Plant small nucleolar RNA R71: a 107-nucleotide RNA from Brassica carinata. Gene Ontology terms of the family: RNA processing and nucleolus. It is annotated as a C/D-box small nucleolar RNA. For this family Rfam cites "Plant snoRNAs: functional evolution and new modes of gene expression" (Brown et al., Trends Plant Sci, 2003). The family's consensus secondary structure was predicted with PFOLD.
[Rfam]
RNA sequence: AAGCCAUGAUGUGGACAUUGAGACCAAUAGUCUUUGAAUCUCUCCCAUGCUUCACCAAAACCUUCAAGAUUCUUCAGCUAAAACCCAGAGAUUUCAUUUCUGAUCUU
Numbered sequence: 001a002a003g004c005c006a007u008g009a010u011g012u013g014g015a016c017a018u019u020g021a022g023a024c025c026a027a028u029a030g031u032c033u034u035u036g037a038a039u040c041u042c043u044c045c046c047a048u049g050c051u052u053c054a055c056c057a058a059a060a061c062c063u064u065c066a067a068g069a070u071u072c073u074u075c076a077g078c079u080a081a082a083a084c085c086c087a088g089a090g091a092u093u094u095c096a097u098u099u100c101u102g103a104u105c106u107u
Stems, first nucleotide, its partner, number of pairs: 001107001003105001005102002057074002060071001